[Rfam]
RNA sequence: GGAACGGGCCUUUCAGGCAUCCUCUCCUAAAACUUCAAGGCCGCCUUCCGAGGCGGCUUUUUUUUGCCUUUU
Numbered sequence: 001g002g003a004a005c006g007g008g009c010c011u012u013u014c015a016g017g018c019a020u021c022c023u024c025u026c027c028u029a030a031a032a033c034u035u036c037a038a039g040g041c042c043g044c045c046u047u048c049c050g051a052g053g054c055g056g057c058u059u060u061u062u063u064u065u066g067c068c069u070u071u072u
Stems, first nucleotide, its partner, number of pairs: 008018004039058008
RNA: Makes More Granules Regulator RNA (mmgR)